Rfam assigns this 83-nucleotide RNA sequence from Trichechus manatus to the family "Small nucleolar RNA SNORD103/SNORD85".
Taxonomically the source falls in Trichechus manatus (Eukaryota, Eumetazoa, Craniata, Tetrapoda).
By type it is a C/D-box small nucleolar RNA.
[Rfam]
RNA sequence: UCUGGCAGUGAUGACCCACUUGCCCUCACUGAGAACAAAGUUCGGUAAUGAGAAUCUUUUAUGGACUCAAGUUCUGAGCCAGA
Numbered sequence: 001u002c003u004g005g006c007a008g009u010g011a012u013g014a015c016c017c018a019c020u021u022g023c024c025c026u027c028a029c030u031g032a033g034a035a036c037a038a039a040g041u042u043c044g045g046u047a048a049u050g051a052g053a054a055u056c057u058u059u060u061a062u063g064g065a066c067u068c069a070a071g072u073u074c075u076g077a078g079c080c081a082g083a
Base pairs, nucleotide, nucleotide: 001083002082003081004080005079006078